[Rfam]
RNA sequence: GUCGGCUUCGUGGUCGUGCAGCCGCAGGACGUGCCGCUCGUCACCGAACUGCCGGGCCGGACCAGCGCCUAUCGCAGCUCGGACGUGCGGCCGCAGAUUUCCGGGGUGAUCCGCCGCAGGCUCUUCACCGAAGGCGCGCUGGUGAAGGCCGGCCAGCCGCUCUACGAGAUCGA
Number, nucleotide and partner (000 for none) at each position: 001g000002u000003c054004g053005g052006c051007u000008u047009c046010g045011u043012g042013g041014u040015c000016g038017u000018g037019c036020a000021g034022c033023c031024g030025c000026a000027g000028g000029a000030c024031g023032u000033g022034c021035c000036g019037c018038u016039c000040g014041u013042c012043a011044c000045c010046g009047a008048a000049c000050u000051g006052c005053c004054g003055g150056g149057c148058c147059g000060g000061a143062c142063c141064a000065g137066c136067g135068c134069c000070u133071a000072u131073c130074g000075c000076a000077g091078c090079u089080c000081g000082g000083a000084c000085g000086u000087g000088c000089g079090g078091c077092c000093g121094c120095a000096g000097a000098u000099u000100u000101c000102c000103g000104g000105g000106g000107u000108g000109a000110u000111c000112c000113g000114c000115c000116g000117c000118a000119g000120g094121c093122u000123c000124u000125u000126c000127a000128c000129c000130g073131a072132a000133g070134g068135c067136g066137c065138g000139c000140u000141g063142g062143u061144g000145a000146a000147g058148g057149c056150c055151g000152g000153c000154c000155a000156g000157c172158c000159g000160c168161u167162c000163u000164a000165c000166g000167a161168g160169a000170u000171c000172g157173a000
RNA: Burkholderia RNA 14